[Rfam]
RNA sequence: AACAAAACUCGGCAAAUUCACACACGUGUCAGCACGUUGUCCCAGGGUGCCGGCUCCUGCUUUAAGGAGACAGGUUGGGGCAAUUGGACGCGUGGAGGCCUAAC
Numbered sequence: 001a002a003c004a005a006a007a008c009u010c011g012g013c014a015a016a017u018u019c020a021c022a023c024a025c026g027u028g029u030c031a032g033c034a035c036g037u038u039g040u041c042c043c044a045g046g047g048u049g050c051c052g053g054c055u056c057c058u059g060c061u062u063u064a065a066g067g068a069g070a071c072a073g074g075u076u077g078g079g080g081c082a083a084u085u086g087g088a089c090g091c092g093u094g095g096a097g098g099c100c101u102a103a104c
Stems, first nucleotide, its partner, number of pairs: 023094008036084009049075003053071001
t44 RNA: a 104-nucleotide RNA from Marinobacter litoralis. The source organism's lineage runs through Bacteria, Pseudomonadati, Pseudomonadales, Marinobacteraceae and Marinobacter. By type it is a small RNA. This family consists of a number of bacterial RNA genes of between 135 and 170 bases in length.